[Rfam]
RNA sequence: GCUGAUGCUGGUGGUGAUACCAGUGGUGUGAGCUGGAAAUGGGGUGCUAAGUCAUCGUUGUCAUUGUCAUCAUCAUCUGA
Dot-bracket structure: (.(((((.(((((((((...(((((((((.(((............)))..).))))))))))))))))).))))).)...
Numbered sequence: 001g002c003u004g005a006u007g008c009u010g011g012u013g014g015u016g017a018u019a020c021c022a023g024u025g026g027u028g029u030g031a032g033c034u035g036g037a038a039a040u041g042g043g044g045u046g047c048u049a050a051g052u053c054a055u056c057g058u059u060g061u062c063a064u065u066g067u068c069a070u071c072a073u074c075a076u077c078u079g080a
Stems, first nucleotide, its partner, number of pairs: 001077001003075005009069009021060008029051001031048003